Background:
Xanthomonadaceae sRNA sX13: a 112-nucleotide RNA sequence from Pseudolysobacter antarcticus. The source organism's lineage runs through Bacteria, Pseudomonadota, Gammaproteobacteria, Lysobacterales and Pseudolysobacter.
RNA sequence: AACGGCACCCCCGGAUCACUCACCUCCCUGAGUGAUCCACAGGAUGACGAAUUCUUCCCCAGAUUCGUCUCCGCCCGCCCCGAAGGUCCCCCCUGGCCUUCGGGGCAUUUUU
Numbered sequence: 001a002a003c004g005g006c007a008c009c010c011c012c013g014g015a016u017c018a019c020u021c022a023c024c025u026c027c028c029u030g031a032g033u034g035a036u037c038c039a040c041a042g043g044a045u046g047a048c049g050a051a052u053u054c055u056u057c058c059c060c061a062g063a064u065u066c067g068u069c070u071c072c073g074c075c076c077g078c079c080c081c082g083a084a085g086g087u088c089c090c091c092c093c094u095g096g097c098c099u100u101c102g103g104g105g106c107a108u109u110u111u112u
Base pairs, nucleotide, nucleotide: 004012005011013038014037015036016035017034018033019032020031021030022029042072043071044070046069047068048067049066050065051064052063053062077106078105079104080103081102082101083100085098086097087096088095

By type it is a small RNA.
On this family, see Schmidtke et al., Nucleic Acids Res 2011: "Genome-wide transcriptome analysis of the plant pathogen Xanthomonas identifies sRNAs with putative virulence functions".
The match comes from Rfam's covariance-model search (55 bits).